[Rfam]
Nucleotides: 045
Base pairs, nucleotide, nucleotide: 006021007020008019009018010017011016
Number, partner (000 for none) and nucleotide at each position: 001000a002000c003000a004000u005000c006021g007020g008019c009018c010017c011016u012000u013000u014000u015000c016011a017010g018009g019008g020007c021006c022000a023000c024000c025000a026000a027000a028000u029000u030000u031000u032000u033000u034000u035000a036000a037000c038000g039000u040000u041000u042000a043000u044000g045000u

The family of this 45-nucleotide RNA sequence from Microctonus aethiopoides is "Histone 3' UTR stem-loop". On this family, see Williams and Marzluff, Nucleic Acids Res 1995: "The sequence of the stem and flanking sequences at the 3' end of histone mRNA are critical determinants for the binding of the stem-loop binding protein".